Rfam assigns this 77-nucleotide RNA from Pseudomonas benzenivorans to the family "narK RNA". It is annotated as a cis-regulatory element. Pairs were carried over by alignment from the consensus structure, which is taken from published work. The match comes from Rfam's covariance-model search (45 bits).

RNA sequence: GGCACAGGCCUUGCUGAGAGCCGGAUAACAACGACUGCGCCAACGGCGGUGCAGGGUUGAACAGACAAAGACGUCGU
Numbered sequence: 001g002g003c004a005c006a007g008g009c010c011u012u013g014c015u016g017a018g019a020g021c022c023g024g025a026u027a028a029c030a031a032c033g034a035c036u037g038c039g040c041c042a043a044c045g046g047c048g049g050u051g052c053a054g055g056g057u058u059g060a061a062c063a064g065a066c067a068a069a070g071a072c073g074u075c076g077u
Base pairs, nucleotide, nucleotide: 035054036053037052038051039050040049041048